Source information
This 371-nucleotide sequence from Streptococcus alactolyticus belongs to the Rfam family "Bacterial RNase P class B". The family is grouped with related families in Rfam's "RNaseP clan". Taxonomically the source falls in Streptococcus (Bacteria, Bacillota, Bacilli, Lactobacillales).
RNA sequence: AUUUUUGGAUAAUCGCGUGGUGCAUUUGGUAUCAUGAGGAAAGUCCAUGCUAGCACCGGCUGUGAUGCGGUAGUGUUUGUGCUAGGUGAAUCAAUAAGCCUAGGGACAUCUUUUUGGAAGGUGUUACGGCGAGCGAAAGGGCUAAGUCGUUAGAUAGGUCUGAGUUGCUCUGAAAGUGCCACAGUGACGUAGUUUUUAGGGAAACCUAAAAAGUGGAACGCGGUAAACCCCUCAAGCUAGCAACCCAAACUUUGGUAGGGGCAUGGGAUAGUUGGAAGACGAACAAUCUAUCCUGACUGGAAACAGUAGACAGAUGAUUAUCGAAGGAGGUAAGACCUAGUUACCUCUGGAACAAAACAUGGCUUAUAGAA
Numbered sequence: 001a002u003u004u005u006u007g008g009a010u011a012a013u014c015g016c017g018u019g020g021u022g023c024a025u026u027u028g029g030u031a032u033c034a035u036g037a038g039g040a041a042a043g044u045c046c047a048u049g050c051u052a053g054c055a056c057c058g059g060c061u062g063u064g065a066u067g068c069g070g071u072a073g074u075g076u077u078u079g080u081g082c083u084a085g086g087u088g089a090a091u092c093a094a095u096a097a098g099c100c101u102a103g104g105g106a107c108a109u110c111u112u113u114u115u116g117g118a119a120g121g122u123g124u125u126a127c128g129g130c131g132a133g134c135g136a137a138a139g140g141g142c143u144a145a146g147u148c149g150u151u152a153g154a155u156a157g158g159u160c161u162g163a164g165u166u167g168c169u170c171u172g173a174a175a176g177u178g179c180c181a182c183a184g185u186g187a188c189g190u191a192g193u194u195u196u197u198a199g200g201g202a203a204a205c206c207u208a209a210a211a212a213g214u215g216g217a218a219c220g221c222g223g224u225a226a227a228c229c230c231c232u233c234a235a236g237c238u239a240g241c242a243a244c245c246c247a248a249a250c251u252u253u254g255g256u257a258g259g260g261g262c263a264u265g266g267g268a269u270a271g272u273u274g275g276a277a278g279a280c281g282a283a284c285a286a287u288c289u290a291u292c293c294u295g296a297c298u299g300g301a302a303a304c305a306g307u308a309g310a311c312a313g314a315u316g317a318u319u320a321u322c323g324a325a326g327g328a329g330g331u332a333a334g335a336c337c338u339a340g341u342u343a344c345c346u347c348u349g350g351a352a353c354a355a356a357a358c359a360u361g362g363c364u365u366a367u368a369g370a371a
Stems, first nucleotide, its partner, number of pairs: 004371003007367001008322007016036006041365003045362005050240005055071003059068002077235003081231001082103006104127001105125008128230002131170004139161004146155003176228002178224003193212008244260003264295007296307004326348008